[Rfam]
A member of the RNA family "mir-3126 microRNA precursor family" from Callithrix jacchus, 74 nucleotides long. Taxonomically the source falls in Callithrix (Eukaryota, Bilateria, Gnathostomata, Cebidae). The base pairs follow the family's consensus structure, which was predicted with RNAalifold. Rfam links the family to the GO terms miRNA-mediated post-transcriptional gene silencing and RISC complex.

RNA sequence: AUAAUUAUUGGAGGGACAGAUGCCAGGAACCCUGGUUAUGAUUUGCAUCUGGCAUCUGUCACACAGAUAAUUAU
Numbered sequence: 001a002u003a004a005u006u007a008u009u010g011g012a013g014g015g016a017c018a019g020a021u022g023c024c025a026g027g028a029a030c031c032c033u034g035g036u037u038a039u040g041a042u043u044u045g046c047a048u049c050u051g052g053c054a055u056c057u058g059u060c061a062c063a064c065a066g067a068u069a070a071u072u073a074u
Stems, first nucleotide, its partner, number of pairs: 001074008011064001015060003019056009030045001